[Rfam]
RNA sequence: CCUUAGGUAAAGCCCCGUCAUCUGGGGAGUAGCCAGCCGCGCGGGAAAGCGCGGGCCUGCGCGUCAACAUACUUGGUCGAGAGGCCAUGGCGCACAGGGGACGGGCAACCGUUCGGGCGAGACCAAUGGCACCGCAUUUCCGCCUUGCCGGGCGGGAAAUGCAGUGCCGUUGUCUUGUCGAUCGCCCGGCCCG
Number, nucleotide and partner (000 for none) at each position: 001c000002c000003u000004u000005a000006g000007g000008u000009a000010a000011a000012g000013c000014c000015c000016c000017g000018u000019c000020a000021u000022c000023u000024g000025g000026g000027g000028a000029g000030u000031a000032g000033c000034c000035a000036g000037c054038c053039g052040c051041g050042c049043g000044g000045g000046a000047a000048a000049g042050c041051g040052c039053g038054g037055g000056c098057c097058u096059g095060c000061g093062c092063g091064u090065c089066a088067a000068c000069a000070u000071a000072c000073u000074u087075g086076g085077u084078c083079g000080a000081g000082a000083g078084g077085c076086c075087a074088u066089g065090g064091c063092g062093c061094a000095c059096a058097g057098g056099g000100g000101a000102c193103g192104g191105g190106c189107a000108a000109c000110c000111g000112u000113u000114c000115g000116g000117g000118c000119g000120a000121g000122a000123c000124c000125a000126a000127u000128g000129g000130c000131a000132c000133c000134g000135c000136a000137u000138u000139u000140c000141c000142g000143c000144c000145u000146u000147g000148c000149c000150g000151g000152g000153c000154g000155g000156g000157a000158a000159a000160u000161g000162c000163a000164g000165u000166g000167c000168c000169g000170u000171u000172g000173u000174c000175u000176u000177g000178u000179c000180g000181a000182u000183c000184g000185c000186c000187c000188g000189g106190c105191c104192c103193g102
Rfam assigns this 193-nucleotide RNA sequence from Sphingobium jiangsuense to the family "Manganese Mn2+ riboswitch aptamer (yybP-ykoY)". Taxonomically the source falls in Sphingobium (Bacteria, Pseudomonadati, Alphaproteobacteria, Sphingomonadales). This RNA was originally discovered in E. coli during a large scale screen and was named SraF. The family was later found to exist upstream of related families of protein genes in many bacteria, including the the yybP and ykoK genes in B. subtilis. The specific functions of these proteins are unknown, but this structured RNA element may be involved in their genetic regulation as a riboswitch. Rfam 15.1 lists 1,126 matches to the family in 1,062 species.